[Rfam]
The family of this 136-nucleotide RNA from Cavia porcellus is "Small nucleolar RNA SNORA38". Its family is annotated with Cajal body, RNA processing and nucleolus in the Gene Ontology. The family has 25 seed sequences and 628 matches in Rfam 15.1. ACA38 is a member of the H/ACA class of snoRNA that guide the sites of modification of uridines to pseudouridines. Lineage of the source: Eukaryota > Bilateria > Deuterostomia > Chordata > Cavia.
RNA sequence: UCCUCCUGCAAAACCAUGUCUUACGCUGCUGUCUUUGUACAUGUAAGAAUUGAAGUCAAAAAAAUAAAAUUGUAAAUUUGGAGAUAUCAGGGGCCAGGUUGCUCUCCACAGGCUCAAAAUCAACUAUCUUACAUAA
Numbered sequence: 001u002c003c004u005c006c007u008g009c010a011a012a013a014c015c016a017u018g019u020c021u022u023a024c025g026c027u028g029c030u031g032u033c034u035u036u037g038u039a040c041a042u043g044u045a046a047g048a049a050u051u052g053a054a055g056u057c058a059a060a061a062a063a064a065u066a067a068a069a070u071u072g073u074a075a076a077u078u079u080g081g082a083g084a085u086a087u088c089a090g091g092g093g094c095c096a097g098g099u100u101g102c103u104c105u106c107c108a109c110a111g112g113c114u115c116a117a118a119a120u121c122a123a124c125u126a127u128c129u130u131a132c133a134u135a136a
Stems, first nucleotide, its partner, number of pairs: 003055002006052001015043005021037001025029001074129001076127001078126001096114002099111003